[Rfam]
The family of this 73-nucleotide RNA from Longimonas halophila is "tRNA". Transfer RNA (tRNA) molecules are approximately 80 nucleotides in length. The family's RNA type in Rfam is transfer RNA. Rfam links the family to the GO term triplet codon-amino acid adaptor activity. Pairs were carried over by alignment from the consensus structure, which is taken from published work.

RNA sequence: GACCCCGUAGCUCAGUUGGUAGAGCAACGGACUUUUAAUCCGUGGGUCGCAGGUUCGAGACCUGCCGGGGUCA
Numbered sequence: 001g002a003c004c005c006c007g008u009a010g011c012u013c014a015g016u017u018g019g020u021a022g023a024g025c026a027a028c029g030g031a032c033u034u035u036u037a038a039u040c041c042g043u044g045g046g047u048c049g050c051a052g053g054u055u056c057g058a059g060a061c062c063u064g065c066c067g068g069g070g071u072c073a
Base pairs, nucleotide, nucleotide: 001072002071003070004069005068006067007066010025011024012023013022027043028042029041030040031039049065050064051063052062053061